About this RNA
Rfam assigns this 112-nucleotide sequence from Luteipulveratus mongoliensis to the family "SAM (S-adenosyl methionine) riboswitch aptamer". NCBI's taxonomy places the organism under Bacteria, Actinomycetota, Micrococcales, Dermacoccaceae, Luteipulveratus. Rfam's curators write: SAM-IV is a mRNA element that regulates gene expression via direct sensing of S-adenosylmethionine (SAM or AdoMet). SAM-IV riboswitches share conserved nucleotide positions with the previously described SAM-I riboswitches sequence analysis and molecular recognition experiments suggest that SAM-I and SAM-IV riboswitches share similar ligand binding sites, but have different scaffolds.
RNA sequence: GGUCUUGAGUGGCAGCGUGAAGCCCUGGCUUGCUGUCCGGCAACCCUCCGUUCGUGGCGGGGUGCCCCAGGUGACGACCCGGCCGCAUGAACCCGUGCGGCAAGCGCGACGA
Numbered sequence: 001g002g003u004c005u006u007g008a009g010u011g012g013c014a015g016c017g018u019g020a021a022g023c024c025c026u027g028g029c030u031u032g033c034u035g036u037c038c039g040g041c042a043a044c045c046c047u048c049c050g051u052u053c054g055u056g057g058c059g060g061g062g063u064g065c066c067c068c069a070g071g072u073g074a075c076g077a078c079c080c081g082g083c084c085g086c087a088u089g090a091a092c093c094c095g096u097g098c099g100g101c102a103a104g105c106g107c108g109a110c111g112a
Stems, first nucleotide, its partner, number of pairs: 001079004009038001011037006021030002039066003044062003048057002082101008